[Rfam]
RNA sequence: GGGCAUUCAGAAGACUUGCACUCUGGGCUACACGCUGAGAACCCGUUUCUCCCCCCGCCCAGGGGAAAGUCCCCGGACUCGUGGCAGAAAGUGCCCUGGGUAAAUCCAGCGCCGACCGACGCCUGAACCGAUCCGAAGCCGAGACGUUCAUAAGAACCGAGCUUGGUGGUCGCCGGUCGACUUUGUCAGCGAUCAUAGUAAUGCAAGUAGGCGGCUACUGACCUCAACGAAACGGGGCUCAUUCUCUGAAUGCU
Numbered sequence: 001g002g003g004c005a006u007u008c009a010g011a012a013g014a015c016u017u018g019c020a021c022u023c024u025g026g027g028c029u030a031c032a033c034g035c036u037g038a039g040a041a042c043c044c045g046u047u048u049c050u051c052c053c054c055c056c057g058c059c060c061a062g063g064g065g066a067a068a069g070u071c072c073c074c075g076g077a078c079u080c081g082u083g084g085c086a087g088a089a090a091g092u093g094c095c096c097u098g099g100g101u102a103a104a105u106c107c108a109g110c111g112c113c114g115a116c117c118g119a120c121g122c123c124u125g126a127a128c129c130g131a132u133c134c135g136a137a138g139c140c141g142a143g144a145c146g147u148u149c150a151u152a153a154g155a156a157c158c159g160a161g162c163u164u165g166g167u168g169g170u171c172g173c174c175g176g177u178c179g180a181c182u183u184u185g186u187c188a189g190c191g192a193u194c195a196u197a198g199u200a201a202u203g204c205a206a207g208u209a210g211g212c213g214g215c216u217a218c219u220g221a222c223c224u225c226a227a228c229g230a231a232a233c234g235g236g237g238c239u240c241a242u243u244c245u246c247u248g249a250a251u252g253c254u
Stems, first nucleotide, its partner, number of pairs: 002254010014208006022063007037051005068239002071237004083095004097109001098107003112179001116176003120172002127167002136164004146157004210224002
A member of the RNA family "RNase MRP" from Mastacembelus armatus, 254 nucleotides long. Taxonomically the source falls in Mastacembelus (Eukaryota, Euteleostomi, Actinopteri, Synbranchiformes). RNase MRP is an enzymatically active ribonucleoprotein with two distinct roles in eukaryotes. In mitochondria it plays a direct role in the initiation of mitochondrial DNA replication. It is annotated as a ribozyme. The family's consensus secondary structure is taken from published work.